[Rfam]
The family of this 82-nucleotide RNA from Aphidius gifuensis is "mir-927 microRNA precursor family". Pairs were carried over by alignment from the consensus structure, which was predicted with RNAalifold. The family has 16 seed sequences and 174 matches in Rfam 15.1. The literature on the family includes a 2007 paper in Genome Res by Ruby et al., "Evolution, biogenesis, expression, and target predictions of a substantially expanded set of Drosophila microRNAs". The organism belongs to Aphidius, within Eukaryota.

RNA sequence: UGCACUGUAUUUGUUUUAGAAUUCCUACGCUUUACCGUUAAAUUCAAGUGGCAAAGCGUUUGAAAUCUGAACCGAAUGCAUU
Numbered sequence: 001u002g003c004a005c006u007g008u009a010u011u012u013g014u015u016u017u018a019g020a021a022u023u024c025c026u027a028c029g030c031u032u033u034a035c036c037g038u039u040a041a042a043u044u045c046a047a048g049u050g051g052c053a054a055a056g057c058g059u060u061u062g063a064a065a066u067c068u069g070a071a072c073c074g075a076a077u078g079c080a081u082u
Stems, first nucleotide, its partner, number of pairs: 010076004015071006022064003027059007035051002